[Rfam]
RNA: FMN riboswitch aptamer (RFN element)
RNA sequence: UAAGUUCUUCGGGGCGGGGUGCAAUUCCCCACCGGCGGUAAAGCGGUGAGAGCCGAUAAGCCCGCGAGCGGAAACGCAGAUUUUGGUUUGAUUCCAAAGCCGACGGUAAAGUCCGGAUGAAAGAAGAAAAAC
Numbered sequence: 001u002a003a004g005u006u007c008u009u010c011g012g013g014g015c016g017g018g019g020u021g022c023a024a025u026u027c028c029c030c031a032c033c034g035g036c037g038g039u040a041a042a043g044c045g046g047u048g049a050g051a052g053c054c055g056a057u058a059a060g061c062c063c064g065c066g067a068g069c070g071g072a073a074a075c076g077c078a079g080a081u082u083u084u085g086g087u088u089u090g091a092u093u094c095c096a097a098a099g100c101c102g103a104c105g106g107u108a109a110a111g112u113c114c115g116g117a118u119g120a121a122a123g124a125a126g127a128a129a130a131a132c
Base pairs, nucleotide, nucleotide: 005128006127007126008125009124010123017029018028019027031112032111033102034101035065036064037063038062060100061099068077069076070075082098083097084096085095086094104115105114106113